The record is a 96-nucleotide RNA sequence from Flavobacterium alvei, which matches "Flavo-1 RNA" in Rfam.

RNA sequence: UAAUUGCCUGCGUGAGGGAUAGAAGCGGCAUCCUUUUGUGGAGUCCCGACAGUAAUCGGGACGGAACAAAAGAUACAGCGGAAAGCCCGACCCUUG
Dot-bracket structure: ...............(((.(....((...(((...((((...(((((((......)))))))...))))..)))...))....).)))........